This 165-nucleotide RNA from Candidatus Protofrankia californiensis belongs to the Rfam family "c-di-AMP riboswitch aptamer (ydaO/yuaA leader)".
RNA sequence: CACGAUCUACCGCGGAGCCACAAGGACAGGAGCGGGGGAACCAACAUCCGGACGUCCGCACACGGAGUCCUUGGGGUAAAGCCGGCAGCGCCCAUCAGCGCUACCGGCCGGGCUUGUUCCCGCCCGCACCCGACAGCUCACCUCGUAGGCGACGGGAAGGACCGA
Numbered sequence: 001c002a003c004g005a006u007c008u009a010c011c012g013c014g015g016a017g018c019c020a021c022a023a024g025g026a027c028a029g030g031a032g033c034g035g036g037g038g039a040a041c042c043a044a045c046a047u048c049c050g051g052a053c054g055u056c057c058g059c060a061c062a063c064g065g066a067g068u069c070c071u072u073g074g075g076g077u078a079a080a081g082c083c084g085g086c087a088g089c090g091c092c093c094a095u096c097a098g099c100g101c102u103a104c105c106g107g108c109c110g111g112g113c114u115u116g117u118u119c120c121c122g123c124c125c126g127c128a129c130c131c132g133a134c135a136g137c138u139c140a141c142c143u144c145g146u147a148g149g150c151g152a153c154g155g156g157a158a159g160g161a162c163c164g165a
Stems, first nucleotide, its partner, number of pairs: 011151003019030001032146006042073002074131003082107004110125004

Taxonomically the source falls in Protofrankia (Bacteria, Actinomycetes, Frankiales, Frankiaceae).